[Rfam]
RNA sequence: UAAGGGCAAUCCGAAAACCUUUAAAAAAGAGUAGGAA
Numbered sequence: 001u002a003a004g005g006g007c008a009a010u011c012c013g014a015a016a017a018c019c020u021u022u023a024a025a026a027a028a029g030a031g032u033a034g035g036a037a
Stems, first nucleotide, its partner, number of pairs: 002021004010036003
Record summary:
DUF805b RNA: a 37-nucleotide RNA from Chitinophaga skermanii. The match comes from Rfam's covariance-model search (44 bits). Lineage of the source: Bacteria > Bacteroidota > Chitinophagales > Chitinophagaceae > Chitinophaga.